[Rfam]
Small nucleolar RNA Z278: a 117-nucleotide RNA from Lactuca saligna.
The base pairs follow the family's consensus structure, which was predicted with PFOLD.
From the family's description: snoZ278 is a C/D box small nucleolar RNA. Its methylation guide targets have not been reported.
Rfam links the family to the GO terms RNA processing and nucleolus.
By type it is a C/D-box small nucleolar RNA.
It scores 38 bits against the family's covariance model.
Rfam 15.1 lists 1,130 matches to the family in 214 species.
The organism belongs to Lactuca, within Eukaryota.
RNA sequence: ACCAAUGAUGAAGUAAUCCAAAUUUAUGAGAUACGGUGGAUCCAAUACCUUGUUUUACAGGGAGAACCACUUGGUUGAAAUUGUGUUUCAGAUGAUAUUGUUGGAUUUCGUUGAGGU
Numbered sequence: 001a002c003c004a005a006u007g008a009u010g011a012a013g014u015a016a017u018c019c020a021a022a023u024u025u026a027u028g029a030g031a032u033a034c035g036g037u038g039g040a041u042c043c044a045a046u047a048c049c050u051u052g053u054u055u056u057a058c059a060g061g062g063a064g065a066a067c068c069a070c071u072u073g074g075u076u077g078a079a080a081u082u083g084u085g086u087u088u089c090a091g092a093u094g095a096u097a098u099u100g101u102u103g104g105a106u107u108u109c110g111u112u113g114a115g116g117u
Stems, first nucleotide, its partner, number of pairs: 001117003048062005